RNA sequence: UAUACUAUCUAAGCUGUUUUUAAGACAGCAGGUGCCGCGAGGCAUAAUGGGGUAACCCAACCUGCCGAGAAACGUGCGUUUGAUUGCUGUGCUUUCAAGCCCUUUUCCCGGCGACGGGAAAGGGGCUUUUUUGUUACACGA
Numbered sequence: 001u002a003u004a005c006u007a008u009c010u011a012a013g014c015u016g017u018u019u020u021u022a023a024g025a026c027a028g029c030a031g032g033u034g035c036c037g038c039g040a041g042g043c044a045u046a047a048u049g050g051g052g053u054a055a056c057c058c059a060a061c062c063u064g065c066c067g068a069g070a071a072a073c074g075u076g077c078g079u080u081u082g083a084u085u086g087c088u089g090u091g092c093u094u095u096c097a098a099g100c101c102c103u104u105u106u107c108c109c110g111g112c113g114a115c116g117g118g119a120a121a122g123g124g125g126c127u128u129u130u131u132u133g134u135u136a137c138a139c140g141a
Stems, first nucleotide, its partner, number of pairs: 028065006034043003099126012
Dot-bracket structure: ...........................(((((((((....)))................)))))).................................((((((((((((....))))))))))))...............
Rfam assigns this 141-nucleotide RNA from Subdoligranulum variabile to the family "Ribosomal protein L10 leader". A reference for the family is Zengel and Lindahl (1994), "Diverse mechanisms for regulating ribosomal protein synthesis in Escherichia coli", Prog Nucleic Acid Res Mol Biol. Lineage of the source: Bacteria > Bacillati > Bacillota > Oscillospiraceae > Subdoligranulum variabile. It scores 56 bits against the family's covariance model. Rfam classes the family as a cis-regulatory leader.